The record is a 116-nucleotide sequence from Darwinula stevensoni, which matches "Group II catalytic intron D1-D4-2" in Rfam. The source organism's lineage runs through Eukaryota, Opisthokonta, Protostomia, Darwinulocopina and Darwinula. The pairing is the family consensus, mapped onto this sequence. The family has 144 seed sequences and 1,231 matches in Rfam 15.1. A search with the family's covariance model found it, with a score of 54 bits.

RNA sequence: GAAGUAUCGGCAAGGGUUUUCAGGAAAACUUGUCAAACUGCUCUUUGCUGCAAAAGAUGUAAAUCUGCUGUAGUGAACGAAAGAGAAAGGUAAUUAAUAGGGAGAUGACUGCAAAG
Numbered sequence: 001g002a003a004g005u006a007u008c009g010g011c012a013a014g015g016g017u018u019u020u021c022a023g024g025a026a027a028a029c030u031u032g033u034c035a036a037a038c039u040g041c042u043c044u045u046u047g048c049u050g051c052a053a054a055a056g057a058u059g060u061a062a063a064u065c066u067g068c069u070g071u072a073g074u075g076a077a078c079g080a081a082a083g084a085g086a087a088a089g090g091u092a093a094u095u096a097a098u099a100g101g102g103a104g105a106u107g108a109c110u111g112c113a114a115a116g
Stems, first nucleotide, its partner, number of pairs: 009034006017026003038116002041085006047074002050071003055066003090112003094108002